[Rfam]
RNA sequence: ACCAUUCUUUUCUUGGGGUUGAGCUAUUGUCCGAUGAGCGUCUAGUGAGGGCAGUACUGUGAACAGCUACACAACACACUCGCAUCAGCUAGAGCUUUGCUUUAUCUUGGUGCAAUUUUUGGAAAA
Numbered sequence: 001a002c003c004a005u006u007c008u009u010u011u012c013u014u015g016g017g018g019u020u021g022a023g024c025u026a027u028u029g030u031c032c033g034a035u036g037a038g039c040g041u042c043u044a045g046u047g048a049g050g051g052c053a054g055u056a057c058u059g060u061g062a063a064c065a066g067c068u069a070c071a072c073a074a075c076a077c078a079c080u081c082g083c084a085u086c087a088g089c090u091a092g093a094g095c096u097u098u099g100c101u102u103u104a105u106c107u108u109g110g111u112g113c114a115a116u117u118u119u120u121g122g123a124a125a126a
Stems, first nucleotide, its partner, number of pairs: 006018004021060001023058001026055007038046002082113006090104006
RNA: U4atac minor spliceosomal RNA
Organism: Carlito syrichta